A member of the RNA family "FGF-2 internal ribosome entry site (IRES)" from Odocoileus virginianus, 437 nucleotides long. Its family is annotated with ribosome binding in the Gene Ontology.

RNA sequence: UUGCGUCCUGCGGCCCGACCCAGACACCCGCCCCAGAAAACCCGGAGCGAGUAGGGGGCGGUGCGCCGGAAGGGAGGCGGGCGGGGGGCGUGGGGGGUCGUGGGCGUCGGCGGGUGGAGACGUAUUAGAUGUGACGCCGCGGCCCGGCGGGUAGCAGACCGGCGGACGCGGUGUCCGCGGUGGCUAGCGGUUCCCGGGUGCUGCGGCUUAGGGAGGCGGCCCUCCCGAGAGCGGCGGCCGCAGAGGCAUCCAGCCCUCACCCCCCGAUCCCGGACCGCCGGGCUCCCCGCGCUCUAGGGCAGGCGGAGAGGGAGGCGGCCGAACAGCUCGAGGCUGGGGGCUCGCGGGCGCGGCCGCGUGCCGCGGGGAGGGAGGUGGCGGCUCCCCGCGCGGCUCCAGGGGCUCGGGGACCCCGCCAGGGCCUUGGUGGGGCCAUG
Numbered sequence: 001u002u003g004c005g006u007c008c009u010g011c012g013g014c015c016c017g018a019c020c021c022a023g024a025c026a027c028c029c030g031c032c033c034c035a036g037a038a039a040a041c042c043c044g045g046a047g048c049g050a051g052u053a054g055g056g057g058g059c060g061g062u063g064c065g066c067c068g069g070a071a072g073g074g075a076g077g078c079g080g081g082c083g084g085g086g087g088g089c090g091u092g093g094g095g096g097g098u099c100g101u102g103g104g105c106g107u108c109g110g111c112g113g114g115u116g117g118a119g120a121c122g123u124a125u126u127a128g129a130u131g132u133g134a135c136g137c138c139g140c141g142g143c144c145c146g147g148c149g150g151g152u153a154g155c156a157g158a159c160c161g162g163c164g165g166a167c168g169c170g171g172u173g174u175c176c177g178c179g180g181u182g183g184c185u186a187g188c189g190g191u192u193c194c195c196g197g198g199u200g201c202u203g204c205g206g207c208u209u210a211g212g213g214a215g216g217c218g219g220c221c222c223u224c225c226c227g228a229g230a231g232c233g234g235c236g237g238c239c240g241c242a243g244a245g246g247c248a249u250c251c252a253g254c255c256c257u258c259a260c261c262c263c264c265c266g267a268u269c270c271c272g273g274a275c276c277g278c279c280g281g282g283c284u285c286c287c288c289g290c291g292c293u294c295u296a297g298g299g300c301a302g303g304c305g306g307a308g309a310g311g312g313a314g315g316c317g318g319c320c321g322a323a324c325a326g327c328u329c330g331a332g333g334c335u336g337g338g339g340g341c342u343c344g345c346g347g348g349c350g351c352g353g354c355c356g357c358g359u360g361c362c363g364c365g366g367g368g369a370g371g372g373a374g375g376u377g378g379c380g381g382c383u384c385c386c387c388g389c390g391c392g393g394c395u396c397c398a399g400g401g402g403c404u405c406g407g408g409g410a411c412c413c414c415g416c417c418a419g420g421g422c423c424u425u426g427g428u429g430g431g432g433c434c435a436u437g
Base pairs, nucleotide, nucleotide: 028381029380030379031378032377034375042371043370058364059363060362061361062360063359064358065357066356082266083265084264085263086262087261090257092255101252102251103250104249106247143190144189147178148177149176150175151174152173153172155170195240196239197238199236200235201234202233203232204231211226212225213224214223215222216221271330272329273328275326277304278303279302281300388405390403391402406414407413408412
NCBI's taxonomy places the organism under Eukaryota, Opisthokonta, Deuterostomia, Chordata, Odocoileus virginianus. Rfam describes the family as follows. This family represents the fibroblast growth factor 2 (FGF-2) internal ribosome entry site (IRES). When expressed the FGF-2 protein plays a pivotal role in cell proliferation, differentiation and survival as well as being involved in wound-healing. It has been found that FGF-2 IRES activity is strictly controlled and highly tissue specific. It is thought that translational IRES dependent activation of FGF-2 plays a vital role in embryogenesis and in the adult brain.